[Rfam]
RNA sequence: GAUUCUGUAGCUCAGCUGGGAGAGCGCUACCUUGACAGGGUAGAGGUCGCUGGUUCGAGCCCAGUCAGAAUCA
Numbered sequence: 001g002a003u004u005c006u007g008u009a010g011c012u013c014a015g016c017u018g019g020g021a022g023a024g025c026g027c028u029a030c031c032u033u034g035a036c037a038g039g040g041u042a043g044a045g046g047u048c049g050c051u052g053g054u055u056c057g058a059g060c061c062c063a064g065u066c067a068g069a070a071u072c073a
Stems, first nucleotide, its partner, number of pairs: 001072007010025004027043005049065005
A member of the RNA family "tRNA" from Exiguobacterium chiriqhucha, 73 nucleotides long. Lineage of the source: Bacteria > Bacillati > Bacillota > Caryophanales > Exiguobacterium chiriqhucha.